[Rfam]
Source information:
A member of the RNA family "Acido-Lenti-1 RNA" from Cyclonatronum proteinivorum, 46 nucleotides long. It is annotated as a small RNA. A search with the family's covariance model found it, with a score of 45 bits. NCBI's taxonomy places the organism under Bacteria, Balneolia, Balneolales, Cyclonatronaceae, Cyclonatronum.
RNA sequence: CCCGGGGUUAGCACCUCGGGCUGUGGUAUGUCGCCCUUUCAGGGCU
Numbered sequence: 001c002c003c004g005g006g007g008u009u010a011g012c013a014c015c016u017c018g019g020g021c022u023g024u025g026g027u028a029u030g031u032c033g034c035c036c037u038u039u040c041a042g043g044g045c046u
Stems, first nucleotide, its partner, number of pairs: 001020008033045005
The family has 87 seed sequences and 2,607 matches in Rfam 15.1.